[Rfam]
About this RNA: A member of the RNA family "mir-574 microRNA precursor family" from Myotis myotis, 83 nucleotides long. Rfam 15.1 lists 4,084 matches to the family in 7 species. Pairs were carried over by alignment from the consensus structure, which was predicted with RNAalifold. The literature on the family includes a 2007 paper in Cancer Res by Lui et al., "Patterns of known and novel small RNAs in human cervical cancer".
RNA sequence: AAGCCUGCAGGGAGAGAGGCAGGGUUUGAUCUGAAGCCUCCAUGGCAACUGUUGAUCAUCUGUUGCCUCUCUCUUUCUCUCCG
Number, nucleotide and partner (000 for none) at each position: 001a000002a000003g000004c000005c000006u000007g000008c000009a000010g075011g074012g073013a072014g071015a070016g069017a068018g067019g066020c065021a064022g063023g000024g061025u000026u000027u058028g057029a056030u055031c054032u000033g000034a000035a050036g049037c000038c000039u000040c000041c000042a000043u000044g000045g000046c000047a000048a000049c036050u035051g000052u000053u000054g031055a030056u029057c028058a027059u000060c000061u024062g000063u022064u021065g020066c019067c018068u017069c016070u015071c014072u013073c012074u011075u010076u000077c000078u000079c000080u000081c000082c000083g000